[Rfam]
RNA: Guanidine-I riboswitch aptamer
Organism: Pseudanabaenaceae cyanobacterium LEGE 13415
RNA sequence: CAAAUUUGCUUCUAGGGUUCCGAUUUAGCUUUGAGUUAAAUGUCUGGUCCGAGAGAAGCCGCUGUUCUAACAAGACAGCUACACGGAGGGAGAAAAGCCCGGGAGAG
Numbered sequence: 001c002a003a004a005u006u007u008g009c010u011u012c013u014a015g016g017g018u019u020c021c022g023a024u025u026u027a028g029c030u031u032u033g034a035g036u037u038a039a040a041u042g043u044c045u046g047g048u049c050c051g052a053g054a055g056a057a058g059c060c061g062c063u064g065u066u067c068u069a070a071c072a073a074g075a076c077a078g079c080u081a082c083a084c085g086g087a088g089g090g091a092g093a094a095a096a097g098c099c100c101g102g103g104a105g106a107g
Base pairs, nucleotide, nucleotide: 008059009058010057011056012055015050016049020047021046022044023041024040025039026038027037028036061079062078063077064076065075066074082102084105088100089099090098